[Rfam]
RNA: tRNA
RNA sequence: GCGGGCGUGGCGGAAUGGUAGACGCAUGGGUCUUAAACACCCUGGGGCGCAAGCCUGUGCGGGUUCGAGUCCCGCCGCCCGCA
Dot-bracket structure: (((((((..(((..........)))..((((.......))))................(((((.......)))))))))))).